[Rfam]
Notes: This 77-nucleotide sequence from Chrysochloris asiatica belongs to the Rfam family "mir-1297 microRNA precursor family". It scores 92 bits against the family's covariance model. Its family is annotated with RISC complex and miRNA-mediated post-transcriptional gene silencing in the Gene Ontology.
RNA sequence: AGAUUAUAUCUAAGGCUGAUCUAUUGGAAUUACUUCUCUGAGCCAAAGUAAUUCAAGUAAUUCAGGUGUAGUGAAAC
Numbered sequence: 001a002g003a004u005u006a007u008a009u010c011u012a013a014g015g016c017u018g019a020u021c022u023a024u025u026g027g028a029a030u031u032a033c034u035u036c037u038c039u040g041a042g043c044c045a046a047a048g049u050a051a052u053u054c055a056a057g058u059a060a061u062u063c064a065g066g067u068g069u070a071g072u073g074a075a076a077c
Stems, first nucleotide, its partner, number of pairs: 007074001010071003014067001016065004022059004027054009